[Rfam]
RNA: SAM riboswitch aptamer (S box leader)
RNA sequence: AGCUCAUCCAGAGGGACUGAGGGAACGGCCCGUUGACGUCCCGGCAACCUUCUCGACCGGCCUGUAGCAGGCCCCGGCGGGACAGGUGCCAAUUCCGGCCUGUGGCGCGCCCGCGCCACGGGGAAGAUGAGGA
Number, nucleotide and partner (000 for none) at each position: 001a000002g000003c131004u130005c129006a128007u127008c126009c000010a000011g000012a000013g042014g041015g040016a039017c038018u000019g000020a000021g031022g030023g029024a000025a000026c097027g096028g095029c023030c022031c021032g000033u000034u000035g000036a000037c000038g017039u016040c015041c014042c013043g090044g089045c088046a087047a000048c086049c085050u082051u081052c080053u079054c000055g000056a000057c000058c000059g000060g000061c000062c000063u000064g000065u000066a000067g000068c000069a000070g000071g000072c000073c000074c000075c000076g000077g000078c000079g053080g052081g051082a050083c000084a000085g049086g048087u046088g045089c044090c043091a000092a000093u000094u125095c028096c027097g026098g000099c122100c121101u120102g119103u118104g117105g116106c115107g114108c113109g000110c000111c000112c000113g108114c107115g106116c105117c104118a103119c102120g101121g100122g099123g000124a000125a094126g008127a007128u006129g005130a004131g003132g000133a000